[Rfam]
RNA sequence: UCCAACCGCUGGGGGUGCCGUAUGCGGCUGAGAGAAGAGGUGAACUCUUCAACCCUUUUGACCUGAUCCGGUUCGUACCGGCGUAGGGAAGUGGUCUGCAUAUCGA
Numbered sequence: 001u002c003c004a005a006c007c008g009c010u011g012g013g014g015g016u017g018c019c020g021u022a023u024g025c026g027g028c029u030g031a032g033a034g035a036a037g038a039g040g041u042g043a044a045c046u047c048u049u050c051a052a053c054c055c056u057u058u059u060g061a062c063c064u065g066a067u068c069c070g071g072u073u074c075g076u077a078c079c080g081g082c083g084u085a086g087g088g089a090a091g092u093g094g095u096c097u098g099c100a101u102a103u104c105g106a
Stems, first nucleotide, its partner, number of pairs: 006094005011056004017028004035049005062087004068081004
The record is a 106-nucleotide RNA from Paludifilum halophilum, which matches "TPP riboswitch aptamer (THI element)" in Rfam. Pairs were carried over by alignment from the consensus structure, which is taken from published work. It scores 78 bits against the family's covariance model. Vitamin B(1) in its active form thiamin pyrophosphate (TPP) is an essential coenzyme that is synthesised by coupling of pyrimidine and thiazole moieties in bacteria. The previously detected thiamin-regulatory element, thi box was extended, resulting in a new, highly conserved RNA secondary structure, the THI element, which is widely distributed in eubacteria and also occurs in some archaea. Analysis of operon structures identified a large number of new candidate thiamin-regulated genes, mostly transporters, in various prokaryotic organisms. The organism belongs to Paludifilum, within Bacteria.